[Rfam]
Nucleotides: 422
Base pairs, nucleotide, nucleotide: 006159007158008157009156010155011154012153013152016148017147018146021051023049024048025047026046027045052107053106054105055104060100061099062098067094068093069092070091071090073086074085075084076083077082109143110142111141116136117135118134119133120132168315169314170313171312173310319420320419321418323416325339328336345412346411347410348409349408350407351405352404353403356397362392363391364390365389367388370385371384372383373382374381
Number, partner (000 for none) and nucleotide at each position: 001000g002000a003000u004000g005000u006159g007158u008157u009156g010155u011154u012153g013152c014000a015000a016148u017147a018146g019000u020000a021051a022000u023049c024048c025047u026046g027045c028000u029000c030000a031000g032000u033000a034000c035000g036000a037000g038000a039000g040000g041000a042000a043000c044000c045027g046026c047025a048024g049023g050000u051021u052107c053106a054105g055104a056000c057000a058000u059000u060100u061099g062098g063000u064000g065000c066000g067094u068093g069092u070091g071090c072000u073086u074085g075084g076083c077082u078000g079000a080000g081000g082077a083076g084075c085074c086073a087000c088000u089000g090071g091070u092069g093068c094067g095000a096000a097000g098062c099061u100060a101000c102000c103000a104055u105054c106053u107052g108000u109143g110142g111141g112000a113000u114000u115000a116136u117135g118134a119133c120132u121000g122000a123000a124000c125000g126000c127000c128000u129000c130000u131000a132120a133119g134118u135117c136116a137000g138000a139000a140000u141111c142110c143109c144000g145000c146018c147017u148016a149000a150000a151000c152013g153012u154011a155010a156009c157008g158007a159006u160000a161000c162000c163000g164000c165000a166000g167000c168315g169314c170313c171312g172000c173310g174000g175000a176000u177000c178000u179000u180000c181000g182000g183000u184000u185000g186000g187000u188000c189000u190000g191000g192000c193000g194000u195000a196000g197000c198000c199000g200000g201000g202000g203000a204000g205000c206000c207000c208000c209000c210000g211000c212000g213000g214000g215000g216000g217000c218000c219000c220000c221000c222000g223000g224000c225000g226000a227000g228000c229000a230000g231000a232000g233000c234000c235000g236000u237000u238000c239000g240000c241000g242000a243000a244000c245000g246000g247000g248000c249000u250000g251000g252000g253000g254000u255000g256000c257000g258000g259000c260000c261000g262000g263000a264000c265000g266000a267000g268000c269000g270000c271000c272000g273000c274000a275000c276000c277000c278000u279000c280000u281000c282000c283000g284000a285000u286000u287000g288000c289000g290000c291000a292000c293000c294000g295000c296000a297000a298000g299000u300000u301000u302000g303000u304000g305000u306000c307000g308000a309000a310173c311000c312171c313170g314169g315168u316000g317000c318000u319420a320419a321418a322000u323416g324000a325339c326000u327000c328336g329000u330000a331000a332000a333000c334000g335000a336328c337000c338000u339325g340000a341000u342000u343000c344000u345412g346411g347410g348409u349408c350407g351405g352404g353403g354000u355000g356397u357000c358000g359000u360000g361000a362392g363391u364390g365389g366000c367388a368000g369000a370385g371384c372383a373382g374381c375000u376000c377000c378000a379000u380000c381374g382373c383372u384371g385370c386000g387000a388367u389365c390364c391363a392362u393000u394000g395000a396000a397356a398000g399000u400000c401000a402000u403353c404352c405351c406000u407350c408349g409348a410347u411346c412345c413000a414000a415000u416323c417000u418321u419320u420319u421000g422000u
A member of the RNA family "Eukaryotic large subunit ribosomal RNA" from Hemibagrus wyckioides, 422 nucleotides of a longer RNA. A search with the family's covariance model found it, with a score of 2783 bits. The base pairs follow the family's consensus structure, which is taken from published work. NCBI's taxonomy places the organism under Eukaryota, Gnathostomata, Teleostomi, Siluroidei, Hemibagrus.